[Rfam]
RNA: Small nucleolar RNA SNORA64/SNORA10 family
Organism: Peromyscus maniculatus
RNA sequence: CCUCCCUCAGCUCUGGCAAUAACACAGGUCUAGAGUGUGCUUGGUGGAUUCCCAAGCAAGAGAAGAGGAUGGCCUUCCUAAUGCACAGCAAACUGCCCCAAAGUGGCUUCUCUGUUUCUGGGAGUACACAGCU
Numbered sequence: 001c002c003u004c005c006c007u008c009a010g011c012u013c014u015g016g017c018a019a020u021a022a023c024a025c026a027g028g029u030c031u032a033g034a035g036u037g038u039g040c041u042u043g044g045u046g047g048a049u050u051c052c053c054a055a056g057c058a059a060g061a062g063a064a065g066a067g068g069a070u071g072g073c074c075u076u077c078c079u080a081a082u083g084c085a086c087a088g089c090a091a092a093c094u095g096c097c098c099c100a101a102a103g104u105g106g107c108u109u110c111u112c113u114g115u116u117u118c119u120g121g122g123a124g125u126a127c128a129c130a131g132c133u
Stems, first nucleotide, its partner, number of pairs: 002067003006062003013056002015053001018042002022038004075124005081119001083117001090113001092111001095107003